[Rfam]
RNA sequence: UCGCUUAAAGAACAACAAAAAUACUUGUUAGCAAUAUUAUAACCCACCUCCUUAGCCAGCCUAAUCUCCCUUGGGCUGGCUUUUUC
Numbered sequence: 001u002c003g004c005u006u007a008a009a010g011a012a013c014a015a016c017a018a019a020a021a022u023a024c025u026u027g028u029u030a031g032c033a034a035u036a037u038u039a040u041a042a043c044c045c046a047c048c049u050c051c052u053u054a055g056c057c058a059g060c061c062u063a064a065u066c067u068c069c070c071u072u073g074g075g076c077u078g079g080c081u082u083u084u085u086c
Stems, first nucleotide, its partner, number of pairs: 039052001042049001054081011
CyaR/Rye RNA: an 86-nucleotide sequence from Serratia symbiotica. The literature on the family includes a 2001 paper in Genes Dev by Wassarman et al., "Identification of novel small RNAs using comparative genomics and microarrays". The organism belongs to Serratia symbiotica, within Bacteria. A search with the family's covariance model found it, with a score of 69 bits. It is annotated as a small RNA.